[Rfam]
RNA: Archaeal large subunit ribosomal RNA, nucleotides 556 to 637
Organism: Nitrososphaera viennensis
RNA sequence: UGUACGGCUCAAAAGGAGUCAGGUGGAGGUUCCGCAAGGGACUGAAGCCUUCCAGGGUCGUACGUUCCGUCUAGAAACACGG
Numbered sequence: 001u002g003u004a005c006g007g008c009u010c011a012a013a014a015g016g017a018g019u020c021a022g023g024u025g026g027a028g029g030u031u032c033c034g035c036a037a038g039g040g041a042c043u044g045a046a047g048c049c050u051u052c053c054a055g056g057g058u059c060g061u062a063c064g065u066u067c068c069g070u071c072u073a074g075a076a077a078c079a080c081g082g
Stems, first nucleotide, its partner, number of pairs: 001064010015053002023048001029042005067082004